[Rfam]
Shown here is a 61-nucleotide sequence from Stegodyphus mimosarum, a member of the family "Selenocysteine insertion sequence 1". A search with the family's covariance model found it, with a score of 44 bits. Pairs were carried over by alignment from the consensus structure, which is taken from published work. Lineage of the source: Eukaryota > Metazoa > Panarthropoda > Araneae > Stegodyphus.
RNA sequence: UUGGUCUUAUGACAUCAAGAGCUGAAAUCCUUUCGGAAAGUUCUUGAUUGAUGCUGACCGA
Numbered sequence: 001u002u003g004g005u006c007u008u009a010u011g012a013c014a015u016c017a018a019g020a021g022c023u024g025a026a027a028u029c030c031u032u033u034c035g036g037a038a039a040g041u042u043c044u045u046g047a048u049u050g051a052u053g054c055u056g057a058c059c060g061a
Stems, first nucleotide, its partner, number of pairs: 001061005014048010029036002
Dot-bracket structure: (((((........((((((((((.....((....))..))))))))))........)))))